[Rfam]
RNA: mir-395 microRNA precursor family
Organism: Phaseolus vulgaris
RNA sequence: GUGUCCCCAAGAGUUCCCCUUAACGCUUCAUUGAGGACUUUGUUUAGGUCCACUUUCACUACUCCUCACUGAAGUGUUUGGGGGAGCUCCCGGUGGCGC
Numbered sequence: 001g002u003g004u005c006c007c008c009a010a011g012a013g014u015u016c017c018c019c020u021u022a023a024c025g026c027u028u029c030a031u032u033g034a035g036g037a038c039u040u041u042g043u044u045u046a047g048g049u050c051c052a053c054u055u056u057c058a059c060u061a062c063u064c065c066u067c068a069c070u071g072a073a074g075u076g077u078u079u080g081g082g083g084g085a086g087c088u089c090c091c092g093g094u095g096g097c098g099c
Base pairs, nucleotide, nucleotide: 005095007093008092011089012088013087014086015085016084017083018082019081020080022079023078024076025075026074027073028072029071030070032068033067034066035065
Dot-bracket structure: ....(.((..((((((((((.(((((((((.((((.............................)))).))))))).))))))))))))..)).)....